[Rfam]
RNA sequence: AGUGCCCUCAGGUAUUGUGGUGUUUGUUGCUUAUCGCCAUCACAGGUUCAAGAGGCACAAGA
Number, nucleotide and partner (000 for none) at each position: 001a000002g058003u057004g056005c055006c054007c000008u000009c000010a000011g000012g000013u000014a000015u045016u044017g043018u042019g041020g040021u039022g038023u000024u000025u000026g000027u033028u000029g000030c000031u000032u000033a027034u000035c000036g000037c000038c022039a021040u020041c019042a018043c017044a016045g015046g000047u000048u000049c000050a000051a000052g000053a000054g006055g005056c004057a003058c002059a000060a000061g000062a000
RNA: Trypanosomatid snoRNA TB9Cs3H2